[Rfam]
The record is an 82-nucleotide RNA sequence from Kribbella sp. VKM Ac-2500, which matches "ZMP/ZTP riboswitch aptamer (pfl RNA motif)" in Rfam. Rfam links the family to the GO terms one-carbon metabolic process and regulation of purine nucleotide biosynthetic process. The match comes from Rfam's covariance-model search (52 bits).
Nucleotides: 082
Stems, first nucleotide, its partner, number of pairs: 004052001009048004015042002017070005027038004059077005
Number, partner (000 for none) and nucleotide at each position: 001000g002000a003000a004052c005000g006000a007000c008000g009048u010047c011046g012045c013000g014000a015042c016041u017070g018069g019068c020067g021066c022000g023000u024000g025000a026000g027038g028037u029036g030035g031000a032000c033000a034000a035030c036029c037028a038027c039000c040000g041016g042015g043000g044000a045012g046011c047010g048009a049000g050000a051000a052004g053000a054000c055000g056000u057000c058000g059077g060076c061075a062074c063073c064000g065000u066021g067020c068019g069018c070017c071000u072000g073063g074062g075061u076060g077059c078000c079000a080000c081000g082000a